[Rfam]
6C RNA: a 74-nucleotide RNA from Corynebacterium meridianum.

RNA sequence: CGCCCCGGUCACACCCCCCCGAGACCGGGUUACGACGGCCCGCGUAACACCCCCCGAUACGCGGGCCGUCCCCA
Numbered sequence: 001c002g003c004c005c006c007g008g009u010c011a012c013a014c015c016c017c018c019c020c021g022a023g024a025c026c027g028g029g030u031u032a033c034g035a036c037g038g039c040c041c042g043c044g045u046a047a048c049a050c051c052c053c054c055c056g057a058u059a060c061g062c063g064g065g066c067c068g069u070c071c072c073c074a
Stems, first nucleotide, its partner, number of pairs: 002031001004029007034070013
The source organism's lineage runs through Bacteria, Bacillati, Actinomycetota, Actinomycetes and Corynebacterium.
Pairs were carried over by alignment from the consensus structure, which is taken from published work.